RNA: Bacterial small signal recognition particle RNA
Organism: Arsenicicoccus cauae
RNA sequence: GUCGGCCCCCCGCGUGGUGGUACCUCUCCCAACUCCCCCAGGGCAGGAAUGCAGCAAGGGCAAGAGAGCUCUUCCAGGUGCGCGGGGGGUCUUCGUC
Numbered sequence: 001g002u003c004g005g006c007c008c009c010c011c012g013c014g015u016g017g018u019g020g021u022a023c024c025u026c027u028c029c030c031a032a033c034u035c036c037c038c039c040a041g042g043g044c045a046g047g048a049a050u051g052c053a054g055c056a057a058g059g060g061c062a063a064g065a066g067a068g069c070u071c072u073u074c075c076a077g078g079u080g081c082g083c084g085g086g087g088g089g090u091c092u093u094c095g096u097c
Stems, first nucleotide, its partner, number of pairs: 004091011015078001018076003022072001024068005035060003043052003